[Rfam]
RNA sequence: AUGGAAGCAUAUUAUUGAUAGUAAUAAUCCAUGGGUUCUAAAAAGCAUGGGGCUGCACCGAGGGAUUCCUCGCCCUCACACAGCUCUAGAGUCAACAGUUUGCCGGUGCUUAGCCAUCGGACCUCUAAUUGCAGCAGCAACAGCAGCAUGAAGAAGAAUUCUCCAUGAGUAUUGGUUUUGGCUGAAGCACUGCAAACCGGCAAGUCACAGAACGGCAAGGGCUCGCUCAUGAGUCUU
Numbered sequence: 001a002u003g004g005a006a007g008c009a010u011a012u013u014a015u016u017g018a019u020a021g022u023a024a025u026a027a028u029c030c031a032u033g034g035g036u037u038c039u040a041a042a043a044a045g046c047a048u049g050g051g052g053c054u055g056c057a058c059c060g061a062g063g064g065a066u067u068c069c070u071c072g073c074c075c076u077c078a079c080a081c082a083g084c085u086c087u088a089g090a091g092u093c094a095a096c097a098g099u100u101u102g103c104c105g106g107u108g109c110u111u112a113g114c115c116a117u118c119g120g121a122c123c124u125c126u127a128a129u130u131g132c133a134g135c136a137g138c139a140a141c142a143g144c145a146g147c148a149u150g151a152a153g154a155a156g157a158a159u160u161c162u163c164c165a166u167g168a169g170u171a172u173u174g175g176u177u178u179u180g181g182c183u184g185a186a187g188c189a190c191u192g193c194a195a196a197c198c199g200g201c202a203a204g205u206c207a208c209a210g211a212a213c214g215g216c217a218a219g220g221g222c223u224c225g226c227u228c229a230u231g232a233g234u235c236u237u
Stems, first nucleotide, its partner, number of pairs: 098197006115187001117185003220235005
Dot-bracket structure: .................................................................................................((((((...........(.(((...............................................................))).)....))))))......................(((((......)))))..
Rfam assigns this 237-nucleotide RNA from Carya illinoinensis to the family "Early nodulin 40". Rfam 15.1 lists 341 matches to the family in 193 species. For this family Rfam cites "Identification of conserved secondary structures and expansion segments in enod40 RNAs reveals new enod40 homologues in plants" (Gultyaev and Roussis, Nucleic Acids Res, 2007). The organism belongs to Carya, within Eukaryota. A search with the family's covariance model found it, with a score of 88 bits.